[Rfam]
RNA: Nuclear RNase P
RNA sequence: UCCGGGGGAAGCUCACCGCCGAGGCCACCCACUGGGUGCGCGUCACCCCACCGCCCCGCCUCGGGGAAGGUCUGAGGGAAGGGCCGCCCACGGCUCCCGCAGAGCCCCGCCCGCGACGGGCGGGUGAGCCACCAGCAAGGGGGGGCGUCGCGUUACGGGCCGGUCCUGGGCAGGAGAAGCUGCGUGGGUCAAUGGGGGGCGGGGAGGGGCGCUUCGCCCCGCCCCCUCCCAACCCCCGGCGGAUGCUCGUGGCCCCGCGGUGCUUUGAGACAGACUCACGGCCGGCGAUCGCUGAGUCCAAUGGGUGAGGUGGGGCACGGGCCCUACAACCUAAUUCAGACUACUCUCCCCCGGA
Number, nucleotide and partner (000 for none) at each position: 001u355002c354003c353004g352005g000006g000007g349008g348009a347010a000011g000012c309013u308014c307015a306016c305017c304018g000019c000020c063021g062022a061023g060024g059025c000026c000027a000028c000029c000030c000031a000032c000033u000034g048035g047036g046037u045038g044039c000040g000041c000042g000043u000044c038045a037046c036047c035048c034049c000050a000051c000052c000053g000054c000055c000056c000057c000058g000059c024060c023061u022062c021063g020064g000065g000066g000067a000068a000069g000070g000071u000072c339073u338074g337075a336076g335077g000078g000079a000080a000081g000082g283083g282084c281085c280086g000087c000088c000089c000090a000091c000092g106093g105094c104095u103096c102097c000098c000099g000100c000101a000102g096103a095104g094105c093106c092107c123108c122109g121110c120111c119112c118113g000114c000115g000116a000117c000118g112119g111120g110121c109122g108123g107124g279125u278126g277127a276128g275129c000130c273131a000132c000133c000134a000135g000136c000137a000138a000139g000140g000141g000142g000143g000144g264145g263146c262147g261148u260149c259150g258151c257152g256153u000154u000155a000156c000157g000158g000159g000160c000161c000162g000163g000164u000165c000166c000167u000168g000169g000170g000171c000172a000173g000174g000175a000176g000177a000178a000179g000180c000181u000182g000183c000184g000185u000186g000187g000188g000189u000190c000191a000192a000193u000194g000195g000196g000197g000198g000199g000200c000201g000202g000203g000204g000205a000206g000207g000208g000209g000210c000211g000212c000213u000214u000215c000216g000217c000218c000219c000220c000221g000222c000223c000224c000225c000226c000227u000228c000229c000230c000231a000232a000233c000234c000235c000236c000237c000238g000239g000240c000241g000242g000243a000244u000245g000246c000247u000248c000249g000250u000251g000252g000253c000254c000255c000256c152257g151258c150259g149260g148261u147262g146263c145264u144265u000266u000267g000268a000269g000270a000271c000272a000273g130274a000275c128276u127277c126278a125279c124280g085281g084282c083283c082284g000285g000286c000287g000288a000289u000290c000291g000292c000293u000294g000295a000296g000297u000298c000299c000300a000301a000302u000303g000304g017305g016306u015307g014308a013309g012310g327311u326312g325313g324314g323315g322316c321317a000318c000319g000320g000321g316322c315323c314324c313325u312326a311327c310328a000329a000330c000331c000332u000333a000334a000335u076336u075337c074338a073339g072340a000341c000342u000343a000344c000345u000346c000347u009348c008349c007350c000351c000352c004353g003354g002355a001